[Rfam]
RNA sequence: AGAUGCAUUACAGGGCAACACCUCCAUUGGCAGUCGGCCGUCAUAUAUAUAUUAGAUGUGUUCUUUCUGAAUGUACUAAUGUAUGGCGAGCAAACUGCCAAAGGAGAUUUGCCCGGCAAUUCUCUU
Number, nucleotide and partner (000 for none) at each position: 001a000002g000003a000004u000005g122006c000007a120008u119009u118010a000011c116012a000013g114014g113015g112016c111017a110018a109019c000020a000021c000022c106023u105024c104025c103026a000027u000028u100029g099030g098031c097032a096033g095034u094035c000036g000037g000038c000039c000040g000041u000042c000043a000044u000045a000046u000047a000048u000049a000050u000051a000052u000053u000054a000055g000056a000057u000058g000059u000060g000061u000062u000063c000064u000065u000066u000067c000068u000069g000070a000071a000072u000073g000074u000075a000076c000077u000078a000079a000080u000081g000082u000083a000084u000085g000086g000087c000088g000089a000090g000091c000092a000093a000094a034095c033096u032097g031098c030099c029100a028101a000102a000103g025104g024105a023106g022107a000108u000109u018110u017111g016112c015113c014114c013115g000116g011117c000118a009119a008120u007121u000122c005123u000124c000125u000126u000

A member of the RNA family "mir-399 microRNA precursor family" from Thalictrum thalictroides, 126 nucleotides long. From the family's description: mir-399 was identified in both Arabidopsis thaliana and Oryza sativa computationally and was later experimentally verified. mir-399 is thought to target mRNAs coding for a phosphatase transporter. The mature sequence is excised from the 3' arm of the hairpin. On this family, see Jones-Rhoades and Bartel, Mol Cell 2004: "Computational Identification of Plant MicroRNAs and Their Targets, Including a Stress-Induced miRNA". Its family is annotated with miRNA-mediated post-transcriptional gene silencing and RISC complex in the Gene Ontology.